[Rfam]
RNA sequence: AAGCCAGCCAAUUGAUCUACUUAUCUGAAUUCAUUUCUAUGGACAUUUAGAAAAAGCUGGCAGUGCUGACACCAUGUUACCAGCCUUAAGGGCAAGUAGUCUUUAAGGUCCUCAAUAUCACAAUG
Numbered sequence: 001a002a003g004c005c006a007g008c009c010a011a012u013u014g015a016u017c018u019a020c021u022u023a024u025c026u027g028a029a030u031u032c033a034u035u036u037c038u039a040u041g042g043a044c045a046u047u048u049a050g051a052a053a054a055a056g057c058u059g060g061c062a063g064u065g066c067u068g069a070c071a072c073c074a075u076g077u078u079a080c081c082a083g084c085c086u087u088a089a090g091g092g093c094a095a096g097u098a099g100u101c102u103u104u105a106a107g108g109u110c111c112u113c114a115a116u117a118u119c120a121c122a123a124u125g
Base pairs, nucleotide, nucleotide: 003061004060005059006058007057016043017042018041019040074118083109084108085107086106087105088104089103091101092100093099
RNA: Small nucleolar RNA SNORA33
Organism: Neotoma lepida